This 66-nucleotide RNA sequence from Streptococcus agalactiae belongs to the Rfam family "Bacilli-1 RNA". The family's RNA type in Rfam is small RNA.

[Rfam]
Nucleotides: 066
Stems, first nucleotide, its partner, number of pairs: 002017006018042007
Number, partner (000 for none) and nucleotide at each position: 001000a002017c003016c004015c005014g006013u007012a008000g009000u010000g011000a012007u013006a014005u015004g016003g017002g018042c019041g020040u021039a022038u023037g024036a025000c026000u027000g028000a029000a030000a031000g032000c033000a034000c035000a036024u037023c038022a039021u040020a041019c042018g043000g044000c045000u046000u047000g048000g049000c050000a051000g052000a053000g054000c055000u056000u057000a058000a059000g060000a061000a062000c063000u064000g065000u066000u
The family's consensus secondary structure is taken from published work.
The sequence is in the family's curated seed alignment.